[Rfam]
RNA sequence: AACUUUGCACAGUGGCAGUAUUGUAGCCAAUGAGGUUUAUCUGAGGUGCGAUUAUUGCUCAUUGAAAACUUUUCCCAAUACCCCGCCAUGACUACUUGAAAUAUAGUUGGCAUUGGCAAUUGACAGUCCCUAUGGAGA
Numbered sequence: 001a002a003c004u005u006u007g008c009a010c011a012g013u014g015g016c017a018g019u020a021u022u023g024u025a026g027c028c029a030a031u032g033a034g035g036u037u038u039a040u041c042u043g044a045g046g047u048g049c050g051a052u053u054a055u056u057g058c059u060c061a062u063u064g065a066a067a068a069c070u071u072u073u074c075c076c077a078a079u080a081c082c083c084c085g086c087c088a089u090g091a092c093u094a095c096u097u098g099a100a101a102u103a104u105a106g107u108u109g110g111c112a113u114u115g116g117c118a119a120u121u122g123a124c125a126g127u128c129c130c131u132a133u134g135g136a137g138a
Stems, first nucleotide, its partner, number of pairs: 020052005026047003034042002085117003088113003092109001094107003127138002130135001
Description:
Rfam assigns this 138-nucleotide sequence from Saimiri boliviensis to the family "U4 spliceosomal RNA". U4 small nuclear RNA (U4 snRNA) is a component of the major U2-dependent spliceosome. The literature on the family includes a 2018 paper in Science by Bai et al., "Structures of the fully assembled Saccharomyces cerevisiae spliceosome before activation". Pairs were carried over by alignment from the consensus structure, which is taken from published work.